The family of this 92-nucleotide RNA sequence from Conger conger is "mir-1388 microRNA precursor family". Its family is annotated with miRNA-mediated post-transcriptional gene silencing and RISC complex in the Gene Ontology.
[Rfam]
RNA sequence: AUCAGAGUGCCUCCCGCAGGACUGUCCAACCUGAGAAUGGUGAAAGAUGUGCUCAAUCUCAGGUCUGUCAGCCCACUGGGUGUCCGCUCAUU
Number, nucleotide and partner (000 for none) at each position: 001a000002u000003c000004a000005g089006a088007g087008u000009g084010c000011c082012u000013c080014c079015c078016g077017c000018a000019g074020g073021a000022c071023u070024g069025u000026c067027c000028a000029a064030c063031c062032u061033g060034a059035g058036a057037a000038u055039g054040g000041u000042g000043a000044a000045a000046g000047a000048u000049g000050u000051g000052c000053u000054c039055a038056a000057u036058c035059u034060c033061a032062g031063g030064u029065c000066u000067g026068u000069c024070a023071g022072c000073c020074c019075a000076c000077u016078g015079g014080g013081u000082g011083u000084c009085c000086g000087c007088u006089c005090a000091u000092u000
The match comes from Rfam's covariance-model search (71 bits). The base pairs follow the family's consensus structure, which was predicted with RNAalifold.